[Rfam]
Aggregatibacter sRNA 54: a 113-nucleotide RNA from Vespertiliibacter pulmonis. By type it is a small RNA. NCBI's taxonomy places the organism under Bacteria, Pseudomonadati, Gammaproteobacteria, Pasteurellales, Vespertiliibacter. It scores 43 bits against the family's covariance model. Validated by RT-PCR, expression up-regulated during growth.
RNA sequence: CUGUACUAUUCGACCGCUUUUUUAUCUUGAGGACACAGCAUUUUGGACAGUUACAGUCGAUACUUAUCAGAUUUUUAGCCCCCCUCGUCCAAAUUCUUUACCGGCGAGAGUCG
Numbered sequence: 001c002u003g004u005a006c007u008a009u010u011c012g013a014c015c016g017c018u019u020u021u022u023u024a025u026c027u028u029g030a031g032g033a034c035a036c037a038g039c040a041u042u043u044u045g046g047a048c049a050g051u052u053a054c055a056g057u058c059g060a061u062a063c064u065u066a067u068c069a070g071a072u073u074u075u076u077a078g079c080c081c082c083c084c085u086c087g088u089c090c091a092a093a094u095u096c097u098u099u100a101c102c103g104g105c106g107a108g109a110g111u112c113g
Base pairs, nucleotide, nucleotide: 002012003011005010026078027077029076030075031074032073033072039070043066045064046063050061051060052059082110084108085107086106087105088104089103